RNA sequence: UCCUAGAAGUUCCGGGUUUCGAGACAUCGCAACCGUCAUUCAACUGGUUCGUUGUCGACGAAACCUGCAAUAAAUAGGA
Numbered sequence: 001u002c003c004u005a006g007a008a009g010u011u012c013c014g015g016g017u018u019u020c021g022a023g024a025c026a027u028c029g030c031a032a033c034c035g036u037c038a039u040u041c042a043a044c045u046g047g048u049u050c051g052u053u054g055u056c057g058a059c060g061a062a063a064c065c066u067g068c069a070a071u072a073a074a075u076a077g078g079a
Stems, first nucleotide, its partner, number of pairs: 001079005013067009031049004